[Rfam]
RNA: Xanthomonadaceae sRNA Xoo2
Organism: Xanthomonas boreopolis
RNA sequence: AGGCGAAGUGAUCGCCAUACCGGCAUGCGGCUCCACAUGCCGUUGCACGGCGGACUACUCGUCGGGUCCGCCGUUUUUUU
Numbered sequence: 001a002g003g004c005g006a007a008g009u010g011a012u013c014g015c016c017a018u019a020c021c022g023g024c025a026u027g028c029g030g031c032u033c034c035a036c037a038u039g040c041c042g043u044u045g046c047a048c049g050g051c052g053g054a055c056u057a058c059u060c061g062u063c064g065g066g067u068c069c070g071c072c073g074u075u076u077u078u079u080u
Stems, first nucleotide, its partner, number of pairs: 002016004022041006047074010